[Rfam]
RNA sequence: UUUUCCGUGUUGAAUUUUGCUAAAACAAGUAAAUGAGCGGAAUGACCAGUUUUGCCUGUCCGAUCAUACACGCAGCAAUGGCGUAAGACGUAUUGAUCUUUCAGGCAGUUAGCGGGCUGCGGGUUGCAGUCCUUACCGGUAGAUGGAAUCUUCUCUGGAGAGUUUUUCCCAGGCUGUUCCCCUGAUAAUUGCGCUGUAUUUUCCACAGGAAAUGCAGGCAACCGACACACUGCGCCUCUUAAGCGAGCGAUAACCGUGAGGUUGGCGACGCGUAAUAGACUCGAGGCCAUCGGUUCUCCCCGGAAAGGCAAAAUCUUGCCCGCAGCUUAGUCGUCAA
Numbered sequence: 001u002u003u004u005c006c007g008u009g010u011u012g013a014a015u016u017u018u019g020c021u022a023a024a025a026c027a028a029g030u031a032a033a034u035g036a037g038c039g040g041a042a043u044g045a046c047c048a049g050u051u052u053u054g055c056c057u058g059u060c061c062g063a064u065c066a067u068a069c070a071c072g073c074a075g076c077a078a079u080g081g082c083g084u085a086a087g088a089c090g091u092a093u094u095g096a097u098c099u100u101u102c103a104g105g106c107a108g109u110u111a112g113c114g115g116g117c118u119g120c121g122g123g124u125u126g127c128a129g130u131c132c133u134u135a136c137c138g139g140u141a142g143a144u145g146g147a148a149u150c151u152u153c154u155c156u157g158g159a160g161a162g163u164u165u166u167u168c169c170c171a172g173g174c175u176g177u178u179c180c181c182c183u184g185a186u187a188a189u190u191g192c193g194c195u196g197u198a199u200u201u202u203c204c205a206c207a208g209g210a211a212a213u214g215c216a217g218g219c220a221a222c223c224g225a226c227a228c229a230c231u232g233c234g235c236c237u238c239u240u241a242a243g244c245g246a247g248c249g250a251u252a253a254c255c256g257u258g259a260g261g262u263u264g265g266c267g268a269c270g271c272g273u274a275a276u277a278g279a280c281u282c283g284a285g286g287c288c289a290u291c292g293g294u295u296c297u298c299c300c301c302g303g304a305a306a307g308g309c310a311a312a313a314u315c316u317u318g319c320c321c322g323c324a325g326c327u328u329a330g331u332c333g334u335c336a337a
Stems, first nucleotide, its partner, number of pairs: 003042006014030004052108007063097004070091003075082002114328011133306002136303004145180005154173005190220003194217004199212004221294005234287005248267002251264005
Rfam assigns this 337-nucleotide RNA from Kosakonia cowanii to the family "RNase E 5' UTR element". Rfam describes the family as follows. This family represents a conserved element found in the 5' UTR of RNase E mRNA. RNase E is a key regulatory enzyme in the pathway of mRNA degradation in E. coli that is able to auto-regulate the degradation of its own mRNA in response to changes in RNase E activity. This rne 5' UTR element acts as a sensor of cellular RNase E concentration enabling tight regulation of RNase E concentration and synthesis. It scores 241 bits against the family's covariance model. NCBI's taxonomy places the organism under Bacteria, Pseudomonadota, Enterobacteriaceae, Kosakonia, Kosakonia cowanii. Rfam links the family to the GO term regulation of gene expression.